[Rfam]
RNA: MIR2912 microRNA precursor family
Nucleotides: 156
Base pairs, nucleotide, nucleotide: 003154004153005152006151009145012143013142014141015140016139017138018137019136020135021133023131025129027128028127029126035122036121037120045115046114049111050110051109052108054105055104059100060099062098063097072088073087074086
Number, partner (000 for none) and nucleotide at each position: 001000u002000c003154u004153a005152g006151a007000a008000c009145u010000c011000c012143a013142g014141a015140u016139a017138u018137g019136g020135g021133c022000c023131a024000a025129a026000c027128a028127c029126u030000g031000a032000a033000c034000a035122g036121u037120g038000u039000u040000u041000g042000g043000g044000c045115u046114g047000c048000a049111g050110g051109a052108u053000a054105g055104a056000u057000u058000c059100g060099g061000a062098c063097u064000u065000c066000u067000c068000c069000g070000u071000u072088g073087u074086u075000g076000c077000u078000a079000u080000a081000a082000u083000u084000u085000g086074g087073a088072c089000u090000u091000a092000c093000a094000a095000a096000u097063a098062g099060c100059c101000u102000u103000c104055u105054u106000a107000g108052a109051u110050u111049u112000g113000a114046u115045g116000a117000a118000a119000a120037c121036a122035u123000g124000a125000a126029a127028g128027u129025u130000g131023u132000a133021g134000g135020c136019c137018u138017a139016u140015g141014u142013c143012u144000u145009a146000c147000c148000a149000a150000a151006u152005c153004u154003g155000u156000g